[Rfam]
RNA sequence: AAAUUGCAUAGAACUCAUUCAUUCAAUUAAUGAAUUGAAUGAAUGAGUUCUAUGCAA
Dot-bracket structure: ......(((((((((((((((((((..........)))))))))))))))))))...
Rfam assigns this 57-nucleotide RNA from Strongylus vulgaris to the family "Plastid-ccsA-ndhD-1 3UTR RNA". The match comes from Rfam's covariance-model search (49 bits). NCBI's taxonomy places the organism under Eukaryota, Opisthokonta, Bilateria, Protostomia, Strongylus. The literature on the family includes a 2023 paper in Plant Commun by Richter et al., "Retrograde signaling in plants: A critical review focusing on the GUN pathway and beyond". The family has 488 seed sequences and 1,322 matches in Rfam 15.1.